Rfam assigns this 88-nucleotide RNA sequence from Bacillus sp. MUM 13 to the family "c-di-GMP-I riboswitch aptamer". The organism belongs to Bacillus, within Bacteria. The base pairs follow the family's consensus structure, which is taken from published work.
RNA sequence: AGAGAUUAAAGGCUAAAUCACUGAAAAGUAAUGACGCAAAGCUAUUGGGAACUCUGUCAGAUUUCGACAAGAUCAGCCAGCUGCCAUC
Numbered sequence: 001a002g003a004g005a006u007u008a009a010a011g012g013c014u015a016a017a018u019c020a021c022u023g024a025a026a027a028g029u030a031a032u033g034a035c036g037c038a039a040a041g042c043u044a045u046u047g048g049g050a051a052c053u054c055u056g057u058c059a060g061a062u063u064u065c066g067a068c069a070a071g072a073u074c075a076g077c078c079a080g081c082u083g084c085c086a087u088c
Base pairs, nucleotide, nucleotide: 012037013036017032018031020029021028022027040082041081042080043079047078048077049074050073056068057067058066